[Rfam]
RNA sequence: UUGAGAGAAAGCCUGCUUAGAUAUGCAUACAUACUAGAGCCAAGUAAGCUCUGCCAUUAAAGCAUAUGGGAAGGUCUGAGGCGCCUCUUAGUAGAGAUCAAAAGGAGGAGACUCUUGGAGAAACAAACAGAAAACACUCUCUGUCUGUCGGUCUAAGAUACUCACGCAAGUGAGAGGAGACUUUGGGCAGAUGGGGAGAUGAGAAGUUUCACGGCGUUGAUUCUAAGUCCAAUAAGCAAGGCCUUGCGGUAAUCUCUGUUAAAGACAUUACUUGCAAGGUAACUCAAUUCAGACUACUCUUCUUUCAA
Numbered sequence: 001u002u003g004a005g006a007g008a009a010a011g012c013c014u015g016c017u018u019a020g021a022u023a024u025g026c027a028u029a030c031a032u033a034c035u036a037g038a039g040c041c042a043a044g045u046a047a048g049c050u051c052u053g054c055c056a057u058u059a060a061a062g063c064a065u066a067u068g069g070g071a072a073g074g075u076c077u078g079a080g081g082c083g084c085c086u087c088u089u090a091g092u093a094g095a096g097a098u099c100a101a102a103a104g105g106a107g108g109a110g111a112c113u114c115u116u117g118g119a120g121a122a123a124c125a126a127a128c129a130g131a132a133a134a135c136a137c138u139c140u141c142u143g144u145c146u147g148u149c150g151g152u153c154u155a156a157g158a159u160a161c162u163c164a165c166g167c168a169a170g171u172g173a174g175a176g177g178a179g180a181c182u183u184u185g186g187g188c189a190g191a192u193g194g195g196g197a198g199a200u201g202a203g204a205a206g207u208u209u210c211a212c213g214g215c216g217u218u219g220a221u222u223c224u225a226a227g228u229c230c231a232a233u234a235a236g237c238a239a240g241g242c243c244u245u246g247c248g249g250u251a252a253u254c255u256c257u258g259u260u261a262a263a264g265a266c267a268u269u270a271c272u273u274g275c276a277a278g279g280u281a282a283c284u285c286a287a288u289u290c291a292g293a294c295u296a297c298u299c300u301u302c303u304u305u306c307a308a
Stems, first nucleotide, its partner, number of pairs: 001308004007302003012240001014238005021067005036052005076292005082216004092101001103116005118212001120210005139198003241280009
Dot-bracket structure: ((((..(((..(.(((((..(((((..........(((((.......)))))..........)))))........[[[[[.((((......(........).(((((....))))).(.(((((..............(((......................................................))).......))))).))))).................))))).)(((((((((......................))))))))).......]]]]].......)))..))))
The record is a 308-nucleotide RNA from Stylonychia lemnae, which matches "Nuclear RNase P" in Rfam.
Ribonuclease P (RNase P) is a ubiquitous endoribonuclease, found in archaea, bacteria and eukarya as well as chloroplasts and mitochondria. Its best characterised activity is the generation of mature 5'-ends of tRNAs by cleaving the 5'-leader elements of precursor-tRNAs. Cellular RNase Ps are ribonucleoproteins. RNA from bacterial RNase Ps retains its catalytic activity in the absence of the protein subunit, i.e. it is a ribozyme. Isolated eukaryotic and archaeal RNase P RNA has not been shown to retain its catalytic function, but is still essential for the catalytic activity of the holoenzyme. Although the archaeal and eukaryotic holoenzyme s have a much greater protein content than the bacterial ones, the RNA cores from all the three lineages are homologous -- helices corresponding to P1, P2, P3, P4, and P10/11 are common to all cellular RNase P RNAs. Yet, there is considerable sequence variation, particularly among the eukaryotic RNAs.
Lineage of the source: Eukaryota > Alveolata > Intramacronucleata > Stichotrichia > Stylonychia.
Rfam classes the family as a ribozyme.